[Rfam]
RNA sequence: CUCCAGGGGAUGCCGUCGGAUCGGAGCCGGGGAACCACUUCCUCGGGGUGAAUCGGCGUCAGGGCCGACUGUGAAGUCGGCUGAGGCGUCGUAGGGCAUGCUUCCAGCCCGAACCCGUCAGCUCACCCGGUAGGCGGCCGUAGGAAGAAUG
Number, nucleotide and partner (000 for none) at each position: 001c000002u025003c024004c023005a000006g000007g000008g000009g000010a000011u000012g000013c000014c000015g000016u000017c000018g000019g000020a000021u000022c000023g004024g003025a002026g131027c130028c129029g128030g127031g126032g000033a000034a000035c000036c045037a000038c000039u000040u000041c000042c000043u000044c000045g036046g116047g115048g114049u000050g000051a000052a000053u000054c091055g090056g089057c088058g087059u086060c085061a000062g000063g000064g000065c000066c000067g000068a000069c000070u000071g000072u000073g000074a000075a000076g000077u000078c000079g000080g000081c000082u000083g000084a000085g060086g059087c058088g057089u056090c055091g054092u000093a000094g110095g109096g108097c107098a000099u000100g000101c000102u000103u000104c000105c000106a000107g097108c096109c095110c094111g000112a000113a000114c048115c047116c046117g000118u000119c000120a000121g000122c000123u000124c000125a000126c031127c030128c029129g028130g027131u026132a000133g000134g000135c000136g000137g000138c000139c000140g000141u000142a000143g000144g000145a000146a000147g000148a000149a000150u000151g000
A member of the RNA family "c-di-AMP riboswitch aptamer (ydaO/yuaA leader)" from Peterkaempfera bronchialis, 151 nucleotides long. The source organism's lineage runs through Bacteria, Actinomycetota, Actinomycetes, Streptomycetaceae and Peterkaempfera. Rfam's curators write: This family represents a conserved RNA structure found upstream of the ydaO and yuaA genes in Bacillus subtilis and related genes in other bacteria.